The family of this 142-nucleotide RNA sequence from Pipistrellus kuhlii is "Small nucleolar RNA SNORA48". The snoRNA ACA 48 has been identified to guide pseudouridylation of the residue U3797 in the 28S rRNA subunit. A search with the family's covariance model found it, with a score of 51 bits. Gene Ontology terms of the family: RNA processing and nucleolus. By type it is an H/ACA-box small nucleolar RNA. On this family, see Ofengand and Bakin, J Mol Biol 1997: "Mapping to nucleotide resolution of pseudouridine residues in large subunit ribosomal RNAs from representative eukaryotes, prokaryotes, archaebacteria, mitochondria and chloroplasts". Clan: SNORA48 clan.
[Rfam]
Nucleotides: 142
Stems, first nucleotide, its partner, number of pairs: 002060007012053004019046003023040003028035001082136003096130001098128001102126002105124001109120001
Number, partner (000 for none) and nucleotide at each position: 001000a002060g003059c004058c005057u006056c007055u008054g009000g010000c011000a012053a013052u014051g015050g016000g017000u018000a019046a020045g021044g022000a023040g024039a025038c026000a027000c028035c029000u030000g031000a032000u033000u034000g035028g036000u037000c038025g039024u040023u041000g042000c043000u044021c045020u046019u047000a048000u049000a050015u051014c052013a053012u054008c055007a056006g057005g058004g059003g060002c061000a062000a063000a064000g065000c066000a067000g068000a069000u070000g071000u072000a073000c074000a075000g076000u077000c078000c079000u080000u081000a082136g083135u084134u085000c086000a087000u088000c089000c090000u091000a092000g093000u094000u095000u096130g097000a098128u099000g100000c101000c102126u103125g104000u105124g106000u107000c108000c109120g110000u111000g112000g113000c114000c115000a116000g117000a118000g119000a120109u121000a122000u123000u124105u125103c126102a127000u128098g129000c130096c131000u132000a133000a134084g135083g136082c137000a138000c139000a140000u141000u142000u